[Rfam]
RNA sequence: UAAAGCAAUAGAGGUAGCGAUGCAGAUGAGUACCUUCUGGAGCCGGCGGGCUGUGAACGAAGGGAAAGGUAACCAUCGCCGAACGUAUCAGGCUGGCGGGUUUGGUGCGUGGGGGCCCGGAGAAUAUCCGAGUCACUCCUUCGAAAACGAAGUGGCGCUAUUUUACGA
Numbered sequence: 001u002a003a004a005g006c007a008a009u010a011g012a013g014g015u016a017g018c019g020a021u022g023c024a025g026a027u028g029a030g031u032a033c034c035u036u037c038u039g040g041a042g043c044c045g046g047c048g049g050g051c052u053g054u055g056a057a058c059g060a061a062g063g064g065a066a067a068g069g070u071a072a073c074c075a076u077c078g079c080c081g082a083a084c085g086u087a088u089c090a091g092g093c094u095g096g097c098g099g100g101u102u103u104g105g106u107g108c109g110u111g112g113g114g115g116c117c118c119g120g121a122g123a124a125u126a127u128c129c130g131a132g133u134c135a136c137u138c139c140u141u142c143g144a145a146a147a148c149g150a151a152g153u154g155g156c157g158c159u160a161u162u163u164u165a166c167g168a
Base pairs, nucleotide, nucleotide: 007162008161009160010159011158017079018078019077020076021075022074025070033063034062035061036060037059039058083110084109085108086107087106088105089104090103091102092101093100094099111137112136114134115133116132118130119129120128121127139152140151141150142149143148